[Rfam]
RNA sequence: GGUAGUAGCAAAUAUUCAAAUGCGAACUUUGAAGACUGAAGUGGAGAAAGGUUCCGUGUGAACAGUAAUUGGACACGGGUGAGUCGAUCCUAAGAGAUAGGAGAAAUCCGUUUGAAAGCGAGCUGUUUACAGUUCCGUUUAUCGAAAGGGAAUCAGGUUAAUAUUCCUGAACCGAGACGUGGAUAAUGUGUGGCAACACAACCGACCCAGGAGACGCCAGCGUGUGCCCAGGGAAGAGUUCUCUUUUCUUUUUAACAAGCAUGUCUUGCCUUGGAAACGGAUUAUCCGGAGAUAAGGAAGAAGUCUUGGCAAAGCACUCUAUUUUUUGGAGUGUCCUGCGCGCUCACGAUGGCCCUUGAAAAUCCUGGUUAGAGAUUUAUUCGCACCCUCGUUCGUACUCAUAACCGCAUCAGGUCUCCAAGGUUAGCAGCCUCUAGUUGA
Numbered sequence: 001g002g003u004a005g006u007a008g009c010a011a012a013u014a015u016u017c018a019a020a021u022g023c024g025a026a027c028u029u030u031g032a033a034g035a036c037u038g039a040a041g042u043g044g045a046g047a048a049a050g051g052u053u054c055c056g057u058g059u060g061a062a063c064a065g066u067a068a069u070u071g072g073a074c075a076c077g078g079g080u081g082a083g084u085c086g087a088u089c090c091u092a093a094g095a096g097a098u099a100g101g102a103g104a105a106a107u108c109c110g111u112u113u114g115a116a117a118g119c120g121a122g123c124u125g126u127u128u129a130c131a132g133u134u135c136c137g138u139u140u141a142u143c144g145a146a147a148g149g150g151a152a153u154c155a156g157g158u159u160a161a162u163a164u165u166c167c168u169g170a171a172c173c174g175a176g177a178c179g180u181g182g183a184u185a186a187u188g189u190g191u192g193g194c195a196a197c198a199c200a201a202c203c204g205a206c207c208c209a210g211g212a213g214a215c216g217c218c219a220g221c222g223u224g225u226g227c228c229c230a231g232g233g234a235a236g237a238g239u240u241c242u243c244u245u246u247u248c249u250u251u252u253u254a255a256c257a258a259g260c261a262u263g264u265c266u267u268g269c270c271u272u273g274g275a276a277a278c279g280g281a282u283u284a285u286c287c288g289g290a291g292a293u294a295a296g297g298a299a300g301a302a303g304u305c306u307u308g309g310c311a312a313a314g315c316a317c318u319c320u321a322u323u324u325u326u327u328g329g330a331g332u333g334u335c336c337u338g339c340g341c342g343c344u345c346a347c348g349a350u351g352g353c354c355c356u357u358g359a360a361a362a363u364c365c366u367g368g369u370u371a372g373a374g375a376u377u378u379a380u381u382c383g384c385a386c387c388c389u390c391g392u393u394c395g396u397a398c399u400c401a402u403a404a405c406c407g408c409a410u411c412a413g414g415u416c417u418c419c420a421a422g423g424u425u426a427g428c429a430g431c432c433u434c435u436a437g438u439u440g441a
Stems, first nucleotide, its partner, number of pairs: 015033006034439004043419004049399002054078006063071002085395003089149002094143002096112003100109003120135002153170005173391004179386003183381001189200004207368006216353004221348004226343002229338003232252006256308004269297005278288003315333007405414002421433004
Description
This 441-nucleotide part of an RNA from Pythium oligandrum belongs to the Rfam family "Eukaryotic large subunit ribosomal RNA". Its Rfam clan is "LSU clan". Pairs were carried over by alignment from the consensus structure, which is taken from published work. Gene Ontology terms of the family: ribosome and structural constituent of ribosome.